[Rfam]
RNA sequence: AUGCACUCCAAAGGAGUGUACAUGAGAACACAAGUGCAUUUUGGUCUUUUUCAAUUCAAUUUCUAGACCCGAAAUGUACUUGUGUUCUCAGGUCACCCCUUUGGGAUCACC
Numbered sequence: 001a002u003g004c005a006c007u008c009c010a011a012a013g014g015a016g017u018g019u020a021c022a023u024g025a026g027a028a029c030a031c032a033a034g035u036g037c038a039u040u041u042u043g044g045u046c047u048u049u050u051u052c053a054a055u056u057c058a059a060u061u062u063c064u065a066g067a068c069c070c071g072a073a074a075u076g077u078a079c080u081u082g083u084g085u086u087c088u089c090a091g092g093u094c095a096c097c098c099c100u101u102u103g104g105g106a107u108c109a110c111c
Stems, first nucleotide, its partner, number of pairs: 007105002011101004016096003024089010
MIR398 microRNA precursor family: a 111-nucleotide RNA sequence from Capsicum annuum. The literature on the family includes a 2004 paper in Plant Cell by Sunkar and Zhu, "Novel and stress-regulated microRNAs and other small RNAs from Arabidopsis". Rfam links the family to the GO terms miRNA-mediated post-transcriptional gene silencing and RISC complex. Lineage of the source: Eukaryota > Streptophytina > asterids > Solanaceae > Capsicum. Pairs were carried over by alignment from the consensus structure, which was predicted with WAR.